Description
This 121-nucleotide sequence from Arthrobacter sp. ISL-28 belongs to the Rfam family "TPP riboswitch aptamer (THI element)". Pairs were carried over by alignment from the consensus structure, which is taken from published work. The organism belongs to Arthrobacter, within Bacteria.

RNA sequence: GGCUGGUACCGCGGGAGCCCGCUGCAGCAGUCACAAAGGCCGCAGGGCUGAGAGGGCUUAAGAGCCGACCGCUUGACCUGAUCCGGUUAGUACCGGCGUAGGGAAGGAUUUCCAUGAAGCU
Numbered sequence: 001g002g003c004u005g006g007u008a009c010c011g012c013g014g015g016a017g018c019c020c021g022c023u024g025c026a027g028c029a030g031u032c033a034c035a036a037a038g039g040c041c042g043c044a045g046g047g048c049u050g051a052g053a054g055g056g057c058u059u060a061a062g063a064g065c066c067g068a069c070c071g072c073u074u075g076a077c078c079u080g081a082u083c084c085g086g087u088u089a090g091u092a093c094c095g096g097c098g099u100a101g102g103g104a105a106g107g108a109u110u111u112c113c114a115u116g117a118a119g120c121u
Stems, first nucleotide, its partner, number of pairs: 006109002009106001011072004017048004055066004077102004083096004
Dot-bracket structure: .....((.(.((((..((((........................))))......((((....))))..))))....((((..((((......))))..))))...).))............